Shown here is a 177-nucleotide RNA sequence from Iodobacter ciconiae, a member of the family "6S / SsrS RNA". Rfam 15.1 lists 5,006 matches to the family in 4,638 species. The literature on the family includes a 2000 paper in Cell by Wassarman and Storz, "6S RNA regulates E. coli RNA polymerase activity". Rfam describes the family as follows. E. coli 6S RNA was the first non coding RNA to be sequenced, but its function was unknown until recently. It consists of 184 nucleotides that fold into an extended hairpin structure with a large single-stranded internal bulge. The 6S RNA specifically associates with RNA polymerase holoenzyme containing the sigma70 specificity factor. This interaction represses expression from a sigma70-dependent promoter during stationary phase. 6S RNA homologs have recently been identified in most bacterial genomes. Many Gram-positive species have two copies of 6S RNA. In Bacillus subtilis, both copies appear to interact with RNA polymerase holoenzyme containing the housekeeping sigma factor and be expressed during different stages of growth. In many proteobacteria, 6S RNA may be processed from a transcript encoding homologs of the E. coli YgfA protein which is a putative 5-formyltetrahydrofolate cycloligase activity.
RNA sequence: GCUUUCCUGCGGUGUUUGUUACGGCUUGUCUCUCUGAACCAAUAAUUACUUUGGUUGCCUGCCACGAGAAUGCCUGUUGUGAGCAUCCCCCGUUGGAUGCACCUGAUGGCAUCCGGUCGGUGACCGCUUGAACCUUCGGUUCAAGAUUGCUUGUCGGACGGCACUCGCGGGAAGCUC
Numbered sequence: 001g002c003u004u005u006c007c008u009g010c011g012g013u014g015u016u017u018g019u020u021a022c023g024g025c026u027u028g029u030c031u032c033u034c035u036g037a038a039c040c041a042a043u044a045a046u047u048a049c050u051u052u053g054g055u056u057g058c059c060u061g062c063c064a065c066g067a068g069a070a071u072g073c074c075u076g077u078u079g080u081g082a083g084c085a086u087c088c089c090c091c092g093u094u095g096g097a098u099g100c101a102c103c104u105g106a107u108g109g110c111a112u113c114c115g116g117u118c119g120g121u122g123a124c125c126g127c128u129u130g131a132a133c134c135u136u137c138g139g140u141u142c143a144a145g146a147u148u149g150c151u152u153g154u155c156g157g158a159c160g161g162c163a164c165u166c167g168c169g170g171g172a173a174g175c176u177c
Stems, first nucleotide, its partner, number of pairs: 003174009012164004017160003031146003035143006053125003057121003061117002068114001070112005079102002084099005
Dot-bracket structure: ..(((((((((((((.(((...........(((.((((((............(((.(((.((.....(.(((((....((...(((((......))))).)).....))))).).)).))).)))............)))))))))...........))))))).)))))))))...